[Rfam]
RNA: Bacterial large signal recognition particle RNA
Organism: Gottschalkia acidurici
RNA sequence: UCAUGCUAGACGGGGAGGUAGCGGUGCCCUGUAACCUGCAAUCCGCUAUAGCAGGGUUGAAUUCCUAGUAUAGGCAUAUUUACUGUGAGGCCUGCCCUAAAAAAGUGGUGUUGACGAUUGGGUCCUGCGCAACGGGAACCUAUGAAUCCCGUCAGGUCCGGAAGGAAGCAGCGGUAAGUAGUAACUCUCGUGUGCCGCGGGGGUGCCUAGUCCGAGCUAACUAUUUAGGUAACGCUUAUGGUAGUAUGUCGAAGCUAGGUGCAUGA
Number, nucleotide and partner (000 for none) at each position: 001u266002c265003a264004u263005g262006c261007u000008a000009g058010a057011c056012g030013g029014g028015g027016a000017g025018g000019u023020a000021g000022c000023g019024g000025u017026g000027c015028c014029c013030u012031g000032u000033a000034a000035c055036c054037u053038g052039c051040a000041a000042u000043c000044c000045g000046c000047u000048a000049u000050a000051g039052c038053a037054g036055g035056g011057u010058u009059g000060a000061a000062u000063u000064c259065c258066u257067a256068g255069u254070a000071u000072a000073g250074g249075c248076a247077u246078a000079u000080u244081u243082a242083c241084u240085g239086u238087g237088a236089g235090g000091c000092c000093u231094g230095c000096c000097c228098u227099a226100a225101a224102a000103a000104a000105g221106u220107g218108g217109u216110g000111u000112u000113g000114a000115c000116g212117a211118u210119u209120g208121g207122g206123u205124c201125c200126u199127g198128c197129g196130c192131a191132a000133c190134g189135g188136g187137a186138a000139c000140c181141u180142a179143u178144g000145a000146a000147u000148c000149c174150c173151g172152u171153c000154a000155g000156g000157u166158c165159c164160g000161g000162a000163a000164g159165g158166a157167a000168g000169c000170a000171g152172c151173g150174g149175u000176a000177a000178g143179u142180a141181g140182u000183a000184a000185c000186u137187c136188u135189c134190g133191u131192g130193u000194g000195c000196c129197g128198c127199g126200g125201g124202g000203g000204u000205g123206c122207c121208u120209a119210g118211u117212c116213c000214g000215a000216g109217c108218u107219a000220a106221c105222u000223a000224u101225u100226u099227a098228g097229g000230u094231a093232a000233c000234g000235c089236u088237u087238a086239u085240g084241g083242u082243a081244g080245u000246a077247u076248g075249u074250c073251g000252a000253a000254g069255c068256u067257a066258g065259g064260u000261g006262c005263a004264u003265g002266a001